[Rfam]
RNA sequence: UUGGGUGUAAAUUGAUUUAUGUUUGGAUACAUUAACUAAAAGUGAUUCUUAUCAAUUUAUGAUGUUUGGGUAG
Number, nucleotide and partner (000 for none) at each position: 001u000002u000003g000004g000005g000006u000007g000008u000009a000010a000011a060012u059013u000014g057015a056016u055017u054018u000019a000020u000021g052022u051023u000024u000025g048026g047027a046028u045029a000030c044031a043032u041033u040034a000035a000036c000037u000038a000039a000040a033041a032042g000043u031044g030045a028046u027047u026048c025049u000050u000051a022052u021053c000054a017055a016056u015057u014058u000059a012060u011061g000062a000063u000064g000065u000066u000067u000068g000069g000070g000071u000072a000073g000
Rfam assigns this 73-nucleotide RNA from Trifolium pratense to the family "MIR5272 microRNA precursor family". Lineage of the source: Eukaryota > Spermatophyta > eudicotyledons > Gunneridae > Trifolium. The family's consensus secondary structure was predicted with RNAalifold.